Rfam assigns this 113-nucleotide RNA from Medicago truncatula to the family "MIR2593 microRNA precursor family". Pairs were carried over by alignment from the consensus structure, which was predicted with RNAalifold.

[Rfam]
RNA sequence: AUAUAAGCAAAAUUGACUUUUUAGGUUCAUUCAUCUGAUGAUGUAUGUGAUCUAUAUUAUGAACCACAUACAUCAUUAAAUGAAUGAAUCUGAAAAGUGAAUUUUGCUUAUAU
Dot-bracket structure: .(((((((((((.(.(((((((((.(((((((((.((((((((....((.(...........).))....)))))))).))))))))).))))))))).).))))))))))).